[Rfam]
RNA sequence: AUGAAGGCAGCGGGAGAGAUUACCGCUUGUAAUCAGGUAACGCCGAAGGAGUAAGCCCUCGGGGUGAAUCUCUCAGGCAAAAGGACCUCUGCCGGACG
Numbered sequence: 001a002u003g004a005a006g007g008c009a010g011c012g013g014g015a016g017a018g019a020u021u022a023c024c025g026c027u028u029g030u031a032a033u034c035a036g037g038u039a040a041c042g043c044c045g046a047a048g049g050a051g052u053a054a055g056c057c058c059u060c061g062g063g064g065u066g067a068a069u070c071u072c073u074c075a076g077g078c079a080a081a082a083g084g085a086c087c088u089c090u091g092c093c094g095g096a097c098g
Stems, first nucleotide, its partner, number of pairs: 006093005012087002020040004042078003045074002049072003055065002

The family of this 98-nucleotide RNA from Cohnella pontilimi is "Glycine riboswitch aptamer". A search with the family's covariance model found it, with a score of 71 bits. This family represents the bacterial glycine riboswitch. Taxonomically the source falls in Cohnella (Bacteria, Bacillati, Bacilli, Caryophanales). Rfam 15.1 lists 9,425 matches to the family in 5,228 species.